[Rfam]
RNA sequence: UUCUUUCGAGUCUGUAGUUGCGGGACGUCUAUCCCUAGUCCAUGGCAGAUGCGGUCGAAAGGAUCCACGUAAGUCGAACCGACCUGGUCGGGGAGGCGAUCAUGGCGCAUCCUAGAGGUAAGUCGCACCGCCCGUUUACUUACGACGCGGCAUACGGCCGCGACGGGCGAGAGGGUAACCGGUGGGAGCUGGGCCCCGGUGCGCGAGUGUGGGGGCAAAGACUAGGUCAGUCGAAAGGG
Numbered sequence: 001u002u003c004u005u006u007c008g009a010g011u012c013u014g015u016a017g018u019u020g021c022g023g024g025a026c027g028u029c030u031a032u033c034c035c036u037a038g039u040c041c042a043u044g045g046c047a048g049a050u051g052c053g054g055u056c057g058a059a060a061g062g063a064u065c066c067a068c069g070u071a072a073g074u075c076g077a078a079c080c081g082a083c084c085u086g087g088u089c090g091g092g093g094a095g096g097c098g099a100u101c102a103u104g105g106c107g108c109a110u111c112c113u114a115g116a117g118g119u120a121a122g123u124c125g126c127a128c129c130g131c132c133c134g135u136u137u138a139c140u141u142a143c144g145a146c147g148c149g150g151c152a153u154a155c156g157g158c159c160g161c162g163a164c165g166g167g168c169g170a171g172a173g174g175g176u177a178a179c180c181g182g183u184g185g186g187a188g189c190u191g192g193g194c195c196c197c198g199g200u201g202c203g204c205g206a207g208u209g210u211g212g213g214g215g216c217a218a219a220g221a222c223u224a225g226g227u228c229a230g231u232c233g234a235a236a237g238g239g
Stems, first nucleotide, its partner, number of pairs: 001239009012230003015224005042210003045055001048111006064105002069100001074095001103217001124203005129169008173196004
Shown here is a 239-nucleotide RNA from Gordonibacter pamelaeae, a member of the family "raiA RNA".
The match comes from Rfam's covariance-model search (141 bits).
By type it is a riboswitch.
NCBI's taxonomy places the organism under Bacteria, Bacillati, Actinomycetota, Coriobacteriia, Gordonibacter pamelaeae.